[Rfam]
RNA sequence: CUUAGUUUGCAGGGGAACUCGCAAGAGUUGAGAAGGUAGAACCUGACCCUUUGAACCUGUCGGUUAAUACUGUCGUAGGGAGCAAUCAUUUGAGAAAU
Numbered sequence: 001c002u003u004a005g006u007u008u009g010c011a012g013g014g015g016a017a018c019u020c021g022c023a024a025g026a027g028u029u030g031a032g033a034a035g036g037u038a039g040a041a042c043c044u045g046a047c048c049c050u051u052u053g054a055a056c057c058u059g060u061c062g063g064u065u066a067a068u069a070c071u072g073u074c075g076u077a078g079g080g081a082g083c084a085a086u087c088a089u090u091u092g093a094g095a096a097a098u
Stems, first nucleotide, its partner, number of pairs: 007085004011050004016044001017028004035043003056079004061072003